[Rfam]
RNA: mir-30 microRNA precursor family
RNA sequence: CGAGUUCAUGUAAACAUCCUACACUCAGCUGUGACCCACCCAGCGGCUGGGAGGGGGAUGUUUGCUUCAACCGA
Numbered sequence: 001c002g003a004g005u006u007c008a009u010g011u012a013a014a015c016a017u018c019c020u021a022c023a024c025u026c027a028g029c030u031g032u033g034a035c036c037c038a039c040c041c042a043g044c045g046g047c048u049g050g051g052a053g054g055g056g057g058a059u060g061u062u063u064g065c066u067u068c069a070a071c072c073g074a
Stems, first nucleotide, its partner, number of pairs: 004071003008067001010065010022054001024051007